[Rfam]
RNA sequence: AGGUUUGCUGUUGGAUGCGUUUGAUGGUGGAACCCUUGGGCCCCACCACCAGCCCCACCACGCGGUAGGGCAC
Numbered sequence: 001a002g003g004u005u006u007g008c009u010g011u012u013g014g015a016u017g018c019g020u021u022u023g024a025u026g027g028u029g030g031a032a033c034c035c036u037u038g039g040g041c042c043c044c045a046c047c048a049c050c051a052g053c054c055c056c057a058c059c060a061c062g063c064g065g066u067a068g069g070g071c072a073c
Base pairs, nucleotide, nucleotide: 004069005068006067007066008065009064010063011062012060013059014058017055019053020052021051023049025048026047027046028045030043033040034039